Source information:
The family of this 52-nucleotide sequence from Roseisalinus antarcticus is "serC leader". The literature on the family includes a 2005 paper in Genome Biol by Corbino et al., "Evidence for a second class of S-adenosylmethionine riboswitches and other regulatory RNA motifs in alpha-proteobacteria". NCBI's taxonomy places the organism under Bacteria, Pseudomonadota, Rhodobacterales, Roseobacteraceae, Roseisalinus. The base pairs follow the family's consensus structure. The family's RNA type in Rfam is cis-regulatory leader.
[Rfam]
Nucleotides: 052
Stems, first nucleotide, its partner, number of pairs: 011028006032047006
Number, partner (000 for none) and nucleotide at each position: 001000a002000c003000g004000c005000g006000g007000g008000a009000c010000a011028c012027c013026c014025c015024u016023c017000c018000c019000c020000a021000a022000c023016g024015a025014g026013g027012g028011g029000c030000g031000a032047a033046u034045a035044u036043c037042u038000g039000u040000g041000a042037g043036g044035a045034u046033a047032u048000c049000a050000c051000a052000u